[Rfam]
RNA sequence: AACAACGUUCACACUCCGUAUUUUCCUAAAAAAACCCGCAGUAAUUAACGGGGAAAUCAGGCUUUUCGGAUUAAACUCAUAAUAGAAAUUUGCGUCAGGUAACGGACAACCGGAAUUAUCCGAUAAAAAAUGCCAGCAUUUCGCCGGCAUGUAUUACGG
Numbered sequence: 001a002a003c004a005a006c007g008u009u010c011a012c013a014c015u016c017c018g019u020a021u022u023u024u025c026c027u028a029a030a031a032a033a034a035c036c037c038g039c040a041g042u043a044a045u046u047a048a049c050g051g052g053g054a055a056a057u058c059a060g061g062c063u064u065u066u067c068g069g070a071u072u073a074a075a076c077u078c079a080u081a082a083u084a085g086a087a088a089u090u091u092g093c094g095u096c097a098g099g100u101a102a103c104g105g106a107c108a109a110c111c112g113g114a115a116u117u118a119u120c121c122g123a124u125a126a127a128a129a130a131u132g133c134c135a136g137c138a139u140u141u142c143g144c145c146g147g148c149a150u151g152u153a154u155u156a157c158g159g
Stems, first nucleotide, its partner, number of pairs: 015106005024070003028066004040057001042055001045052002112121002130150005136144002